[Rfam]
RNA sequence: AGAAAUUCAGUGAAUGGAAAUAGUAAGUAAUGUCUGAAGAUCUAAAGCGAGCUGGGGAUGGUGAGAGCCUGGUGACGAUCAGAUUACUGAAUGGUUCCAGGAGAAGCCGCACAAAACGUACAGGAGUAGUGUUGGCCGGAAGUCCACCGUUAGAAGGACAGGAUAUCGAAGAAUUGUUUCUUCCGUAUCUGUAAAGAGCGAGACGGUCUAAUCGUCUAACAUGGGUGGCAACACGGAAUCAGCGCAUUUCGUCCUAACU
Numbered sequence: 001a002g003a004a005a006u007u008c009a010g011u012g013a014a015u016g017g018a019a020a021u022a023g024u025a026a027g028u029a030a031u032g033u034c035u036g037a038a039g040a041u042c043u044a045a046a047g048c049g050a051g052c053u054g055g056g057g058a059u060g061g062u063g064a065g066a067g068c069c070u071g072g073u074g075a076c077g078a079u080c081a082g083a084u085u086a087c088u089g090a091a092u093g094g095u096u097c098c099a100g101g102a103g104a105a106g107c108c109g110c111a112c113a114a115a116a117c118g119u120a121c122a123g124g125a126g127u128a129g130u131g132u133u134g135g136c137c138g139g140a141a142g143u144c145c146a147c148c149g150u151u152a153g154a155a156g157g158a159c160a161g162g163a164u165a166u167c168g169a170a171g172a173a174u175u176g177u178u179u180c181u182u183c184c185g186u187a188u189c190u191g192u193a194a195a196g197a198g199c200g201a202g203a204c205g206g207u208c209u210a211a212u213c214g215u216c217u218a219a220c221a222u223g224g225g226u227g228g229c230a231a232c233a234c235g236g237a238a239u240c241a242g243c244g245c246a247u248u249u250c251g252u253c254c255u256a257a258c259u
Base pairs, nucleotide, nucleotide: 007104008103015099016098017097018096026088027087028086029085030084031083041075042074051073052072053071054070055069056068107135108134109132110131111130112129137149138148139147201217202216203215204214205213206212207211222256223255224254225253233252234251235250236249237248238247239246
Dot-bracket structure: ......((......((((.......((((((.........((........((((((...........)))))))).......)))))).......))))...))..((((((................)))).)).(((.......)))...................................................(((((((...)))))))....((((.......(((((((......)))))))))))...
A member of the RNA family "T-box leader" from Tindallia californiensis, 259 nucleotides long. Uncharged tRNA acts as the effector for transcription antitermination of genes in the T-box leader family. A reference for the family is Gerdeman et al. (2003), "Solution structure of the Bacillus subtilis T-box antiterminator RNA: seven nucleotide bulge characterized by stacking and flexibility", J Mol Biol. The family's RNA type in Rfam is cis-regulatory leader. Lineage of the source: Bacteria > Clostridia > Peptostreptococcales > Tindalliaceae > Tindallia.